[Rfam]
Nucleotides: 101
Stems, first nucleotide, its partner, number of pairs: 002100007013042005021031003026077003043070004048066002051061003074093001079090004
Number, partner (000 for none) and nucleotide at each position: 001000g002100u003099c004098u005097c006096a007095u008094c009000a010000a011000g012000a013042g014041c015040a016039g017038c018000u019000g020000a021031g022030g023029g024000a025000u026077u027076g028075g029023c030022c031021c032000a033000a034000g035000g036000a037000c038017g039016c040015u041014g042013c043070a044069g045068c046067a047000a048066c049065c050000a051061u052060c053059c054000g055000u056000u057000u058000u059053g060052g061051a062000c063000a064000a065049g066048g067046u068045g069044c070043u071000a072000a073000u074093u075028c076027c077026a078000u079090c080089a081088g082087c083000u084000u085000u086000u087082g088081c089080u090079g091000g092000c093074a094008g095007a096006u097005g098004a099003g100002g101000g

SAM riboswitch aptamer (S box leader): a 101-nucleotide sequence from Dialister histaminiformans.
The family's consensus secondary structure is taken from published work.
It scores 85 bits against the family's covariance model.
Taxonomically the source falls in Dialister (Bacteria, Bacillota, Negativicutes, Veillonellales).